[Rfam]
The family of this 92-nucleotide RNA from Artemisia annua is "Small nucleolar RNA snoR27".
A reference for the family is Brown et al. (2001), "Multiple snoRNA gene clusters from Arabidopsis", RNA.

RNA sequence: GAUGGGUCGAUGAUGUUUAAGAAGAAACUGCGUUAUCUAUCUGUUAAUCCUUAACCGGAUCUGAUGAUAAAAUAUUCUUUAUGAGAUCCUUA
Number, nucleotide and partner (000 for none) at each position: 001g000002a091003u000004g089005g088006g087007u086008c000009g000010a000011u000012g000013a000014u000015g000016u000017u000018u000019a000020a000021g000022a000023a000024g000025a000026a000027a000028c000029u000030g000031c000032g000033u000034u000035a000036u000037c000038u000039a000040u000041c000042u000043g000044u000045u000046a000047a000048u000049c000050c000051u000052u000053a000054a000055c000056c000057g000058g000059a000060u000061c000062u000063g000064a000065u000066g000067a000068u000069a000070a000071a000072a000073u000074a000075u000076u000077c000078u000079u000080u000081a000082u000083g000084a000085g000086a007087u006088c005089c004090u000091u002092a000
It is annotated as a C/D-box small nucleolar RNA.
The organism belongs to Artemisia, within Eukaryota.